A member of the RNA family "Cyanobacterial functional RNA 1" from Gloeomargarita lithophora, 66 nucleotides long. On this family, see Voss et al., BMC Genomics 2007: "A motif-based search in bacterial genomes identifies the ortholog of the small RNA Yfr1 in all lineages of cyanobacteria". It scores 44 bits against the family's covariance model. The source organism's lineage runs through Bacteria, Bacillati, Cyanophyceae, Gloeomargarita and Gloeomargarita lithophora.
[Rfam]
RNA sequence: GCGGAGACGCAAGUUUCCGUUCACUCCUCACACCACACUCUGGCCUAAGCUGGUGCUUAGGUCUUU
Numbered sequence: 001g002c003g004g005a006g007a008c009g010c011a012a013g014u015u016u017c018c019g020u021u022c023a024c025u026c027c028u029c030a031c032a033c034c035a036c037a038c039u040c041u042g043g044c045c046u047a048a049g050c051u052g053g054u055g056c057u058u059a060g061g062u063c064u065u066u
Stems, first nucleotide, its partner, number of pairs: 001020008042063008